RNA sequence: GAAGCCCGCCAGGCCGUCGCUGGUGCCGCAUGGGAAACCUGGCACUGGAGGAACGUCCGGACUGCAAAGGGCAGCGUAGCAGGUAACACCUGUCCACCGUGAGGUGAGGAUCAGAGCAACAGAGACGAGUCGCCGUGGGCAACCAUGGCGGGUGAAACGGGCAAUCUCUACGCGCAGCAAUACCAAAUAGGCCAGCGUCGAUGUGGCUCCGCGGAGCUGGCGGGUAGGUAGCACCGAGCCGUGGGGGCGACCCCCGGCCCAGAGGAAUGACGGUCGCGCCCGGGAAACCGGGCGUCACAGAAUCCGGCGUACCGGCGGACUUCACAC
Numbered sequence: 001g002a003a004g005c006c007c008g009c010c011a012g013g014c015c016g017u018c019g020c021u022g023g024u025g026c027c028g029c030a031u032g033g034g035a036a037a038c039c040u041g042g043c044a045c046u047g048g049a050g051g052a053a054c055g056u057c058c059g060g061a062c063u064g065c066a067a068a069g070g071g072c073a074g075c076g077u078a079g080c081a082g083g084u085a086a087c088a089c090c091u092g093u094c095c096a097c098c099g100u101g102a103g104g105u106g107a108g109g110a111u112c113a114g115a116g117c118a119a120c121a122g123a124g125a126c127g128a129g130u131c132g133c134c135g136u137g138g139g140c141a142a143c144c145a146u147g148g149c150g151g152g153u154g155a156a157a158c159g160g161g162c163a164a165u166c167u168c169u170a171c172g173c174g175c176a177g178c179a180a181u182a183c184c185a186a187a188u189a190g191g192c193c194a195g196c197g198u199c200g201a202u203g204u205g206g207c208u209c210c211g212c213g214g215a216g217c218u219g220g221c222g223g224g225u226a227g228g229u230a231g232c233a234c235c236g237a238g239c240c241g242u243g244g245g246g247g248c249g250a251c252c253c254c255c256g257g258c259c260c261a262g263a264g265g266a267a268u269g270a271c272g273g274u275c276g277c278g279c280c281c282g283g284g285a286a287a288c289c290g291g292g293c294g295u296c297a298c299a300g301a302a303u304c305c306g307g308c309g310u311a312c313c314g315g316c317g318g319a320c321u322u323c324a325c326a327c
Stems, first nucleotide, its partner, number of pairs: 001323004006318005012275007020048009053310003057307005062177004069209004074173005079093005094108001095106004109168002114166002116162002130151009181230004191221006202213004238258004243254004
RNA: Bacterial RNase P class A
Organism: Caenimonas aquaedulcis